[Rfam]
RNA sequence: AUUCCUUCUGUCGUGUAUCCACGAUUAAUGUAACCUCGGAUGCUUUA
Numbered sequence: 001a002u003u004c005c006u007u008c009u010g011u012c013g014u015g016u017a018u019c020c021a022c023g024a025u026u027a028a029u030g031u032a033a034c035c036u037c038g039g040a041u042g043c044u045u046u047a
Base pairs, nucleotide, nucleotide: 010025011024012023013022032044034042
Dot-bracket structure: .........((((........))))......(.(.......).)...
Plastid-ycf3 group II-D1 intron: a 47-nucleotide RNA. Rfam describes the family as follows. Plastid rpl16 is a non-coding RNA (ncRNA) recognised in plastids. The family's consensus secondary structure was predicted with LocARNA. Gene Ontology term of the family: Group II intron splicing. Rfam 15.1 lists 1,488 matches to the family in 559 species. Rfam's curators put it in the seed alignment.